[Rfam]
RNA sequence: AGUCUUGAUAGAGGCGCGGCUGACAUGAGUAGCCCCCAACAAAACGGCAGGAGACCGUGGGGUGCGGAAGGGGACGCCGCCGAAGGGUCGAUAAAAUCCCUGUUUUGUCGAUACUUGGGUCGUCGGGAAAUACCCGGCGGACUGUCGUCCGGAAGGACGGAGUGCUGUCAUGAUC
Dot-bracket structure: .....((((((....(((((...(.......((.(((.(..................).))).))......)...)))))...((((((((((((........))))))))).)))((.((((((((.....)))))))).)).((((((....))))))....)))))).....
This 175-nucleotide RNA from Ruminococcaceae bacterium AF10-16 belongs to the Rfam family "Lysine riboswitch aptamer". The organism belongs to Oscillospiraceae, within Bacteria. Rfam 15.1 lists 3,224 matches to the family in 1,923 species. From the family's description: Riboswitches are metabolite binding domains within certain messenger RNAs that serve as precision sensors for their corresponding targets. Allosteric rearrangement of mRNA structure is mediated by ligand binding, and this results in modulation of gene expression. This family includes riboswitches that sense lysine in a number of genes involved in lysine metabolism, including lysC.